[Rfam]
Source information: This 93-nucleotide RNA sequence from Mesorhizobium sp. YM1C-6-2 belongs to the Rfam family "Repression of heat shock gene expression (ROSE) element". For this family Rfam cites "A mRNA-based thermosensor controls expression of rhizobial heat shock genes" (Nocker et al., Nucleic Acids Res, 2001). The family's RNA type in Rfam is RNA thermoregulator. The family has 13 seed sequences and 381 matches in Rfam 15.1. From the family's description: This family represents a 5' UTR cis-regulatory element found in heat shock mRNAs and is known as the ROSE (repression of heat shock gene expression) element. The ROSE element is a negative regulator of heat shock gene expression. The secondary structure is thought to be regulated by temperature. This regulation blocks access to the ribosome binding site under normal conditions. NCBI's taxonomy places the organism under Bacteria, Pseudomonadati, Pseudomonadota, Alphaproteobacteria, Mesorhizobium.

RNA sequence: CCGGUCGCUGAACGGACCGGCAUGGUCAGGGAGCGCCGGCUUCUUGGCGCUCCUCGUACCCAUGUUGCUCAACGGAGGAUAUGGCUAUGAGAA
Number, nucleotide and partner (000 for none) at each position: 001c020002c019003g018004g017005u016006c015007g000008c014009u000010g000011a000012a000013c000014g008015g006016a005017c004018c003019g002020g001021c000022a000023u000024g000025g000026u000027c000028a000029g000030g052031g000032a051033g050034c049035g048036c047037c046038g045039g044040c000041u000042u000043c000044u039045u038046g037047g036048c035049g034050c033051u032052c030053c091054u090055c089056g088057u087058a086059c000060c084061c083062a082063u081064g080065u079066u078067g000068c077069u076070c075071a000072a000073c000074g000075g070076a069077g068078g066079a065080u064081a063082u062083g061084g060085c000086u058087a057088u056089g055090a054091g053092a000093a000